[Rfam]
RNA sequence: CUCUUAUCUAGAGUGGUGGAGGGACUGGCCCUAUGAAACCCGGCAACCAGUAUAUUUUUAUAUACACGGUGCUAAAUCCUGCAGUAGGUUUACUGAAAGAUAAGUA
Numbered sequence: 001c002u003c004u005u006a007u008c009u010a011g012a013g014u015g016g017u018g019g020a021g022g023g024a025c026u027g028g029c030c031c032u033a034u035g036a037a038a039c040c041c042g043g044c045a046a047c048c049a050g051u052a053u054a055u056u057u058u059u060a061u062a063u064a065c066a067c068g069g070u071g072c073u074a075a076a077u078c079c080u081g082c083a084g085u086a087g088g089u090u091u092a093c094u095g096a097a098a099g100a101u102a103a104g105u106a
Stems, first nucleotide, its partner, number of pairs: 003104006013041001015040003021031003025081001027079002042073004047069002050065004077098001082095005
The family of this 106-nucleotide RNA sequence from Terrisporobacter othiniensis is "SAM riboswitch aptamer (S box leader)". About the family: The SAM riboswitch is found upstream of a number of genes which code for proteins involved in methionine or cysteine biosynthesis in Gram-positive bacteria. The base pairs follow the family's consensus structure, which is taken from published work. It scores 89 bits against the family's covariance model. Rfam links the family to the GO term regulation of gene expression. The organism belongs to Terrisporobacter, within Bacteria.